[Rfam]
RNA: Glutamine-II riboswitch aptamer
Organism: Acanthochromis polyacanthus
Nucleotides: 056
Base pairs, nucleotide, nucleotide: 005047006046007045010025011024012023013021014020034056035055036054037053038052039051040050
Number, partner (000 for none) and nucleotide at each position: 001000a002000a003000a004000a005047g006046u007045u008000g009000a010025u011024u012023u013021c014020a015000u016000u017000a018000u019000c020014u021013g022000a023012a024011a025010a026000c027000g028000c029000a030000c031000u032000g033000a034056c035055u036054g037053a038052g039051g040050c041000a042000g043000a044000g045007a046006a047005c048000g049000g050040g051039c052038c053037u054036c055035a056034g